[Rfam]
RNA sequence: AACUCAUAAGUCAAGGCCCCACUGUAUUGGUCAUUCAAGUAGGGCAAAGGAAAUACCUUUUAAAACUCAAGCAAGCUGGGUGUUUGUCUUGCAUCCUGUCAGAGGAAACAAAA
Numbered sequence: 001a002a003c004u005c006a007u008a009a010g011u012c013a014a015g016g017c018c019c020c021a022c023u024g025u026a027u028u029g030g031u032c033a034u035u036c037a038a039g040u041a042g043g044g045c046a047a048a049g050g051a052a053a054u055a056c057c058u059u060u061u062a063a064a065a066c067u068c069a070a071g072c073a074a075g076c077u078g079g080g081u082g083u084u085u086g087u088c089u090u091g092c093a094u095c096c097u098g099u100c101a102g103a104g105g106a107a108a109c110a111a112a113a
Stems, first nucleotide, its partner, number of pairs: 016045004027038004056105005068091001069089001071087006
A member of the RNA family "Small nucleolar RNA SNORA27" from Myotis davidii, 113 nucleotides long.
About the family: ACA27 is a member of the H/ACA class of snoRNA that guide the sites of modification of uridines to pseudouridines.
Clan: SNORA27 clan.
The pairing is the family consensus, mapped onto this sequence.
The source organism's lineage runs through Eukaryota, Opisthokonta, Teleostomi, Eutheria and Myotis.